[Rfam]
RNA sequence: UUUCAAGACGUUUUAACUAAUAAACUGUUUUUUCCCUCUCCGACAAAGAACAAUUCAAUCUUUGACAGAGAGGGACAAAACAGUUUAUUGGUAAAAACGUCUUGUAAC
Numbered sequence: 001u002u003u004c005a006a007g008a009c010g011u012u013u014u015a016a017c018u019a020a021u022a023a024a025c026u027g028u029u030u031u032u033u034c035c036c037u038c039u040c041c042g043a044c045a046a047a048g049a050a051c052a053a054u055u056c057a058a059u060c061u062u063u064g065a066c067a068g069a070g071a072g073g074g075a076c077a078a079a080a081c082a083g084u085u086u087a088u089u090g091g092u093a094a095a096a097a098c099g100u101c102u103u104g105u106a107a108c
Stems, first nucleotide, its partner, number of pairs: 001107002004104003011097004016092013029069003033065002049059001
The family of this 108-nucleotide sequence from Plutella xylostella is "mir-8517 microRNA precursor family". Lineage of the source: Eukaryota > Arthropoda > Dicondylia > Pterygota > Plutella.